A member of the RNA family "Purine riboswitch aptamer" from Paraliobacillus quinghaiensis, 100 nucleotides long.
Pairs were carried over by alignment from the consensus structure, which is taken from published work.

RNA sequence: CAAAUUAAAUAGUAAGUACCUCAUAUAAUUUUGGGAAUAUGGCCCAAUAGUCUCUACCCGUUACCGUAAAUAAUGGACUAUGAGGGAAGAUGAUUCAUUG
Numbered sequence: 001c002a003a004a005u006u007a008a009a010u011a012g013u014a015a016g017u018a019c020c021u022c023a024u025a026u027a028a029u030u031u032u033g034g035g036a037a038u039a040u041g042g043c044c045c046a047a048u049a050g051u052c053u054c055u056a057c058c059c060g061u062u063a064c065c066g067u068a069a070a071u072a073a074u075g076g077a078c079u080a081u082g083a084g085g086g087a088a089g090a091u092g093a094u095u096c097a098u099u100g
Base pairs, nucleotide, nucleotide: 019085020084021083022082023081024080025079029049031047032046033045034044035043058076059075060074061073062072063071